[Rfam]
Nucleotides: 305
Stems, first nucleotide, its partner, number of pairs: 003305001004283003008279003012021003026303003030300005035203005040057006063198005068086006087097001088095002098193002101135003109127002114123003141191002143187003159174006207223003227256007257268004
Number, partner (000 for none) and nucleotide at each position: 001000a002000g003305a004283a005282c006281u007000g008279a009278u010277c011000g012021c013020u014019g015000g016000a017000a018000a019014c020013a021012g022000a023000g024000g025000a026303a027302a028301g029000u030300c031299c032298g033297u034296g035203c036202u037201g038200c039199c040057a041056c042055u043054a044053u045052c046000u047000g048000a049000g050000a051000u052045g053044a054043u055042a056041g057040u058000a059000g060000u061000g062000a063198u064197c065196g066195u067194g068086c069085u070084g071083a072082g073081g074000c075000c076000a077000a078000u079000a080000a081073c082072c083071u084070c085069a086068g087097g088095c089094a090000g091000a092000a093000a094089u095088g096000a097087c098193a099192a100000c101135g102134g103133u104000g105000a106000a107000c108000g109127c110126c111000u112000a113000a114123g115122u116121c117000g118000u119000a120000a121116g122115a123114u124000a125000u126110g127109g128000a129000a130000c131000u132000a133103g134102c135101c136000a137000u138000a139000a140000a141191g142190u143187g144186c145185c146000a147000c148000a149000g150000a151000a152000a153000c154000g155000a156000a157000u158000a159174c160173u161172g162171u163170u164169a165000g166000a167000a168000a169164u170163g171162a172161c173160a174159g175000g176000g177000u178000g179000a180000a181000a182000a183000g184000g185145g186144g187143u188000a189000a190142a191141c192099u193098u194067c195066g196065c197064g198063a199039g200038g201037c202036a203035g204000a205000a206000a207223c208222c209221c210000a211000a212000a213000u214000u215000u216000u217000g218000g219000u220000a221209g222208g223207g224000g225000a226000g227256u228255c229254u230253a231252g232251c233250a234000a235000a236000a237000g238000g239000a240000a241000u242000u243000g244000a245000a246000c247000g248000g249000a250233u251232g252231c253230u254229a255228g256227g257268u258267a259266g260265a261000g262000a263000a264000a265260u266259c267258u268257a269000a270000g271000a272000u273000a274000a275000a276000u277010g278009a279008u280000g281006a282005g283004u284000u285000g286000a287000a288000a289000a290000a291000c292000a293000g294000a295000a296034c297033a298032c299031g300030g301028c302027u303026u304000a305003u

Bacterial RNase P class B: a 305-nucleotide sequence from Catenibacterium sp. CAG:290.
The family's RNA type in Rfam is ribozyme.
The family's consensus secondary structure is taken from published work.
Ribonuclease P (RNase P) is a ubiquitous endoribonuclease, found in archaea, bacteria and eukarya as well as chloroplasts and mitochondria. Its best characterised activity is the generation of mature 5'-ends of tRNAs by cleaving the 5'-leader elements of precursor-tRNAs. Cellular RNase Ps are ribonucleoproteins. RNA from bacterial RNase Ps retains its catalytic activity in the absence of the protein subunit, i.e. it is a ribozyme. Isolated eukaryotic and archaeal RNase P RNA has not been shown to retain its catalytic function, but is still essential for the catalytic activity of the holoenzyme. Although the archaeal and eukaryotic holoenzyme s have a much greater protein content than the bacterial ones, the RNA cores from all the three lineages are homologous -- helices corresponding to P1, P2, P3, P4, and P10/11 are common to all cellular RNase P RNAs. Yet, there is considerable sequence variation, particularly among the eukaryotic RNAs.
The organism belongs to Catenibacterium, within Bacteria.
The literature on the family includes a 1999 paper in Nucleic Acids Res by Brown, "The Ribonuclease P Database".